[Rfam]
RNA sequence: CCAGGUGUACGACCACCUGACACCUACUCGAACAUGCCAGCCUGGCAACGGGUUGGUUUGAAGCUUCGACGACGAUGUCCCCCGUUUAACACGGUGCAUUCCACACGCGAGUGAGGGUGCAGAAACUGCUAGCAGCAAUGCGGUGGAGGGG
Dot-bracket structure: .((((((......))))))........(((((((.(((((((((....))))))))).))....)))))............((((.....))))((((......((....)).....))))...(((((..........))))).......
RNA: Group II catalytic intron D1-D4-7